[Rfam]
Overview
This 424-nucleotide sequence from Pseudoalteromonas phenolica belongs to the Rfam family "cspA thermoregulator".

RNA sequence: CAUUGCCUAUAAAGUGCGCAUCAGCUAGAAAGAAAGUCUAAAUUUAAAAUCUACAUUUCGUUGUACUACUCGUAAUACUCGUCCUGAAGCUUUAAGUUCAAGUUUUAUUUUCCAAGCAAUACCGCCUUCGGGCACAUUUUUACAAUAUAUUUUUUAGGAUAUGAUUAUGUCUAAAGUAACUGGUACAGUUAAGUGGUUCAACGAAUCUAAAGGUUUUGGUUUCAUCGCUCAAGAGUCUGGCGCAGACGUAUUUGCACACUUUAGUGCAAUUUCUGGCGACGGUUUCAAAACUCUAGUUGAAGGCCAAAAAGUUGAGUUCACUGUAACUCAAGGUCAAAAAGGUCCUCAAGCUGAGAACAUCGUAGUACUUUAAUUUUUAAUUAAAAUACUCUGAAAAAAAGCAGACAUAGUCUGCUUUUUUUGU
Numbered sequence: 001c002a003u004u005g006c007c008u009a010u011a012a013a014g015u016g017c018g019c020a021u022c023a024g025c026u027a028g029a030a031a032g033a034a035a036g037u038c039u040a041a042a043u044u045u046a047a048a049a050u051c052u053a054c055a056u057u058u059c060g061u062u063g064u065a066c067u068a069c070u071c072g073u074a075a076u077a078c079u080c081g082u083c084c085u086g087a088a089g090c091u092u093u094a095a096g097u098u099c100a101a102g103u104u105u106u107a108u109u110u111u112c113c114a115a116g117c118a119a120u121a122c123c124g125c126c127u128u129c130g131g132g133c134a135c136a137u138u139u140u141u142a143c144a145a146u147a148u149a150u151u152u153u154u155u156a157g158g159a160u161a162u163g164a165u166u167a168u169g170u171c172u173a174a175a176g177u178a179a180c181u182g183g184u185a186c187a188g189u190u191a192a193g194u195g196g197u198u199c200a201a202c203g204a205a206u207c208u209a210a211a212g213g214u215u216u217u218g219g220u221u222u223c224a225u226c227g228c229u230c231a232a233g234a235g236u237c238u239g240g241c242g243c244a245g246a247c248g249u250a251u252u253u254g255c256a257c258a259c260u261u262u263a264g265u266g267c268a269a270u271u272u273c274u275g276g277c278g279a280c281g282g283u284u285u286c287a288a289a290a291c292u293c294u295a296g297u298u299g300a301a302g303g304c305c306a307a308a309a310a311g312u313u314g315a316g317u318u319c320a321c322u323g324u325a326a327c328u329c330a331a332g333g334u335c336a337a338a339a340a341g342g343u344c345c346u347c348a349a350g351c352u353g354a355g356a357a358c359a360u361c362g363u364a365g366u367a368c369u370u371u372a373a374u375u376u377u378u379a380a381u382u383a384a385a386a387u388a389c390u391c392u393g394a395a396a397a398a399a400a401g402c403a404g405a406c407a408u409a410g411u412c413u414g415c416u417u418u419u420u421u422u423g424u
Stems, first nucleotide, its partner, number of pairs: 001016004021231001023229003032223002035221004043212003053208001055206002059203005065197003071169006083158007096112001124133003171183003236325001238323003245253002258312004265306002267303001271296002275292001278291001331346003348370003351365003355361001375386004395421012

The source organism's lineage runs through Bacteria, Pseudomonadati, Gammaproteobacteria, Pseudoalteromonadaceae and Pseudoalteromonas. Its family is annotated with response to temperature stimulus and regulation of translation in the Gene Ontology. It is annotated as an RNA thermoregulator.